Rfam assigns this 132-nucleotide RNA to the family "TPP riboswitch aptamer (THI element)". About the family: Vitamin B(1) in its active form thiamin pyrophosphate (TPP) is an essential coenzyme that is synthesised by coupling of pyrimidine and thiazole moieties in bacteria.
[Rfam]
RNA sequence: UACUGCUUGACGGGGUGCCGGUGGAACCGGCUGAGAUCGCUAUACGGCUGGCUGCUACAGCAAGUCGUCACGGCGGGGCCCGUUGAACCUGAUCCGGCUAGUACCGGCGUAGGAAUCAAGCGGUGGUUGGGG
Numbered sequence: 001u002a003c004u005g006c007u008u009g010a011c012g013g014g015g016u017g018c019c020g021g022u023g024g025a026a027c028c029g030g031c032u033g034a035g036a037u038c039g040c041u042a043u044a045c046g047g048c049u050g051g052c053u054g055c056u057a058c059a060g061c062a063a064g065u066c067g068u069c070a071c072g073g074c075g076g077g078g079c080c081c082g083u084u085g086a087a088c089c090u091g092a093u094c095c096g097g098c099u100a101g102u103a104c105c106g107g108c109g110u111a112g113g114a115a116u117c118a119a120g121c122g123g124u125g126g127u128u129g130g131g132g
Stems, first nucleotide, its partner, number of pairs: 006120005011082004016076001017031005038075004088113004094107004